Shown here is a 78-nucleotide RNA from Microcebus murinus, a member of the family "Small nucleolar RNA SNORD83". The literature on the family includes a 2000 paper in Nucleic Acids Res by Jady and Kiss, "Characterisation of the U83 and U84 small nucleolar RNAs: two novel 2'-O-ribose methylation guide RNAs that lack complementarities to ribosomal RNAs". The match comes from Rfam's covariance-model search (95 bits). Pairs were carried over by alignment from the consensus structure, which was predicted with PFOLD. Rfam classes the family as a C/D-box small nucleolar RNA. Gene Ontology terms of the family: RNA processing and nucleolus.
RNA sequence: GCCAUAUGAUGUUUUUUGUUUGAGAAGUGAGCGCUUUGCGCAGUGAUGACCUCGAUCUAUCACCCUUGACUGAUGGCU
Dot-bracket structure: ((((..........................((((...))))................................)))).